[Rfam]
RNA sequence: ACAUUUUCCUCUGCAGUGCCAGAGAAAGUUA
Numbered sequence: 001a002c003a004u005u006u007u008c009c010u011c012u013g014c015a016g017u018g019c020c021a022g023a024g025a026a027a028g029u030u031a
Stems, first nucleotide, its partner, number of pairs: 003029005009024005014018001
Iron response element II: a 31-nucleotide RNA from Mastacembelus armatus. It scores 32 bits against the family's covariance model. The literature on the family includes a 1989 paper in Proc Natl Acad Sci U S A by Koeller et al., "A cytosolic protein binds to structural elements within the iron regulatory region of the transferrin receptor mRNA". Rfam describes the family as follows. IRE, TFRC, SLC40A1, SDHB, SLC11A2, CDC42BPA, ACO2, ALAS2_H.SAPIENS, CDC14A, EPAS1, ALAS2, qoxD, Hao1, NDUFS1, transferrin, Aconitate. Gene Ontology term of the family: response to iron ion. The source organism's lineage runs through Eukaryota, Bilateria, Clupeocephala, Synbranchiformes and Mastacembelus.